[Rfam]
RNA: mir-318 microRNA precursor family
Organism: Scaptodrosophila lebanonensis
RNA sequence: UUUAUGGGAUACACUAAGUUCAGUUUUGUCAGAUCCUCAACAUCACUGGGCUUUGUUUAUCUCAUAAG
Numbered sequence: 001u002u003u004a005u006g007g008g009a010u011a012c013a014c015u016a017a018g019u020u021c022a023g024u025u026u027u028g029u030c031a032g033a034u035c036c037u038c039a040a041c042a043u044c045a046c047u048g049g050g051c052u053u054u055g056u057u058u059a060u061c062u063c064a065u066a067a068g
Stems, first nucleotide, its partner, number of pairs: 002067010013056002017052008027042003